[Rfam]
The family of this 123-nucleotide RNA is "pemK RNA".

Nucleotides: 123
Base pairs, nucleotide, nucleotide: 012120013087014086015085016084017083018082088106089105090104092102093101094100107119108118109117
Number, partner (000 for none) and nucleotide at each position: 001000a002000u003000a004000a005000u006000g007000g008000u009000a010000c011000u012120u013087c014086c015085g016084u017083c018082c019000a020000g021000u022000c023000a024000c025000a026000g027000g028000c029000c030000g031000a032000g033000c034000g035000u036000u037000g038000a039000a040000g041000c042000g043000g044000c045000u046000u047000u048000u049000u050000c051000u052000u053000g054000u055000u056000c057000u058000g059000c060000c061000g062000u063000g064000a065000g066000c067000c068000g069000u070000c071000g072000c073000a074000g075000c076000c077000a078000a079000u080000g081000a082018g083017g084016g085015c086014g087013g088106c089105c090104c091000c092102g093101u094100g095000a096000g097000a098000u099000c100094c101093a102092c103000g104090g105089g106088g107119a108118g109117g110000u111000a112000a113000g114000a115000u116000u117109c118108c119107u120012a121000u122000g123000a